[Rfam]
This 113-nucleotide RNA from Chlorogloeopsis fritschii belongs to the Rfam family "Guanidine-I riboswitch aptamer". The organism belongs to Chlorogloeopsis fritschii, within Bacteria.
RNA sequence: ACAAAUAGCUUCUAGGGUUCCGGUUUAACACUCUCAAAGUUAAACGACUGGUCCAAGAGAGGCACCCAGUUUCAUAAAAACUGGCUACACGGCGGGAAAAAAGCCCGGGAGGU
Numbered sequence: 001a002c003a004a005a006u007a008g009c010u011u012c013u014a015g016g017g018u019u020c021c022g023g024u025u026u027a028a029c030a031c032u033c034u035c036a037a038a039g040u041u042a043a044a045c046g047a048c049u050g051g052u053c054c055a056a057g058a059g060a061g062g063c064a065c066c067c068a069g070u071u072u073c074a075u076a077a078a079a080a081c082u083g084g085c086u087a088c089a090c091g092g093c094g095g096g097a098a099a100a101a102a103g104c105c106c107g108g109g110a111g112g113u
Stems, first nucleotide, its partner, number of pairs: 008063005015054002020051002022048001023045006064086001066084006088108001090111001094106003
Rfam 15.1 lists 1,509 matches to the family in 1,281 species. Pairs were carried over by alignment from the consensus structure.